[Rfam]
RNA sequence: CGAAGUGGAUCUGGAGAGCGCUCCGAAAAAGGAGCCGCCGAAGGGGCAAGUGGACCUUUGCGCACCUGCAAAGCUCCAUGAAUCUCUCAGGCAAAAGGACAGAUCGGGAUGA
Numbered sequence: 001c002g003a004a005g006u007g008g009a010u011c012u013g014g015a016g017a018g019c020g021c022u023c024c025g026a027a028a029a030a031g032g033a034g035c036c037g038c039c040g041a042a043g044g045g046g047c048a049a050g051u052g053g054a055c056c057u058u059u060g061c062g063c064a065c066c067u068g069c070a071a072a073g074c075u076c077c078a079u080g081a082a083u084c085u086c087u088c089a090g091g092c093a094a095a096a097g098g099a100c101a102g103a104u105c106g107g108g109a110u111g112a
Base pairs, nucleotide, nucleotide: 006107008105009104010103011102012101013100020035021034022033023032037092038091039090040088041087044086045085046084050079051078052077053076054075

This 112-nucleotide sequence from Terrihabitans soli belongs to the Rfam family "Glycine riboswitch aptamer". Taxonomically the source falls in Terrihabitans (Bacteria, Pseudomonadati, Pseudomonadota, Alphaproteobacteria).